RNA: Selenocysteine transfer RNA
RNA sequence: GGGGAUAGAAGGGUAUCUGGUGAGCCCCGCGGUCUUCAAAACCGUAGAGGGCGGCGUUCCCGCCUUGGUGAGUUCGAUUCUUACCUGUCCCC
Number, nucleotide and partner (000 for none) at each position: 001g092002g091003g090004g089005a088006u087007a086008g085009a000010a000011g000012g027013g026014u000015a000016u023017c022018u000019g000020g000021u000022g017023a016024g000025c000026c013027c012028c000029g045030c044031g043032g042033u041034c000035u000036u000037c000038a000039a000040a000041a033042c032043c031044g030045u029046a000047g000048a066049g065050g064051g063052c062053g000054g000055c000056g000057u000058u000059c000060c000061c000062g052063c051064c050065u049066u048067g000068g000069u083070g082071a081072g080073u000074u000075c000076g000077a000078u000079u000080c072081u071082u070083a069084c000085c008086u007087g006088u005089c004090c003091c002092c001